[Rfam]
The family of this 95-nucleotide RNA from Varanus komodoensis is "Vault RNA". Taxonomically the source falls in Varanus (Eukaryota, Opisthokonta, Chordata, Unidentata). The literature on the family includes a 2009 paper in Mol Biol Evol by Stadler et al., "Evolution of Vault RNAs". The match comes from Rfam's covariance-model search (35 bits).
RNA sequence: GGGCCAGCUCAGCCCAGUGGUUCCCUUGAAAUAUAUCUGCAAUGACAUUGUAAGCACUUUGAGUCCUGUGGCCACUGCCACUGCCUGGCCUUUUA
Numbered sequence: 001g002g003g004c005c006a007g008c009u010c011a012g013c014c015c016a017g018u019g020g021u022u023c024c025c026u027u028g029a030a031a032u033a034u035a036u037c038u039g040c041a042a043u044g045a046c047a048u049u050g051u052a053a054g055c056a057c058u059u060u061g062a063g064u065c066c067u068g069u070g071g072c073c074a075c076u077g078c079c080a081c082u083g084c085c086u087g088g089c090c091u092u093u094u095a
Stems, first nucleotide, its partner, number of pairs: 002090006012079001014077001017075004025063005